[Rfam]
RNA sequence: CAAUCCGGUGAUGUAGUCAAAUAUCAGCUGGUAAUUCUGGGAUUUGUGACAGUAGCCCAGGAUUCUUGCUGGUAUCUGGCUACGAACUGGA
Numbered sequence: 001c002a003a004u005c006c007g008g009u010g011a012u013g014u015a016g017u018c019a020a021a022u023a024u025c026a027g028c029u030g031g032u033a034a035u036u037c038u039g040g041g042a043u044u045u046g047u048g049a050c051a052g053u054a055g056c057c058c059a060g061g062a063u064u065c066u067u068g069c070u071g072g073u074a075u076c077u078g079g080c081u082a083c084g085a086a087c088u089g090g091a
Stems, first nucleotide, its partner, number of pairs: 013083006021075008030066002034063008
Dot-bracket structure: ............((((((..((((((((.((..((((((((..............)))))))).)).))))))))..))))))........